[Rfam]
A member of the RNA family "Lysine riboswitch aptamer" from Mycoplasmopsis bovigenitalium, 166 nucleotides long.
It scores 66 bits against the family's covariance model.
The base pairs follow the family's consensus structure, which is taken from published work.
Lineage of the source: Bacteria > Mycoplasmatota > Mycoplasmoidales > Mycoplasmopsis > Mycoplasmopsis bovigenitalium.
Riboswitches are metabolite binding domains within certain messenger RNAs that serve as precision sensors for their corresponding targets.
RNA sequence: AGAUACUAUAGAGGAGCUUUCCAUAAUAGUAAAUAGUUUAGCAGGCAUGCAAGGAUGCUAUUGAAAGGAUAGGGAGGCCGAAUCUUUAAUUUGGGCACAAAUUAAAGGUGGUAACAAUUCAUAACAGUUUGUUACUCUUUGGAAAUCCAUUGGCGCUAUAGUCUAC
Numbered sequence: 001a002g003a004u005a006c007u008a009u010a011g012a013g014g015a016g017c018u019u020u021c022c023a024u025a026a027u028a029g030u031a032a033a034u035a036g037u038u039u040a041g042c043a044g045g046c047a048u049g050c051a052a053g054g055a056u057g058c059u060a061u062u063g064a065a066a067g068g069a070u071a072g073g074g075a076g077g078c079c080g081a082a083u084c085u086u087u088a089a090u091u092u093g094g095g096c097a098c099a100a101a102u103u104a105a106a107g108g109u110g111g112u113a114a115c116a117a118u119u120c121a122u123a124a125c126a127g128u129u130u131g132u133u134a135c136u137c138u139u140u141g142g143a144a145a146u147c148c149a150u151u152g153g154c155g156c157u158a159u160a161g162u163c164u165a166c
Stems, first nucleotide, its partner, number of pairs: 006161006016078006023070002032062006082109012110136008119127001